[Rfam]
RNA: TPP riboswitch aptamer (THI element)
RNA sequence: ACCAUCUUGUCGGAGUGCCCUUAUGGGCUGAGACCGCGAAAGCGGGAUCCGUUGAACCUGAUCAGGCUAAUACCUGCGAAGGGAAGCAAGUAAAGAAUGUGC
Numbered sequence: 001a002c003c004a005u006c007u008u009g010u011c012g013g014a015g016u017g018c019c020c021u022u023a024u025g026g027g028c029u030g031a032g033a034c035c036g037c038g039a040a041a042g043c044g045g046g047a048u049c050c051g052u053u054g055a056a057c058c059u060g061a062u063c064a065g066g067c068u069a070a071u072a073c074c075u076g077c078g079a080a081g082g083g084a085a086g087c088a089a090g091u092a093a094a095g096a097a098u099g100u101g102c
Stems, first nucleotide, its partner, number of pairs: 006090005011051004016045001017028004035044003057082003063076004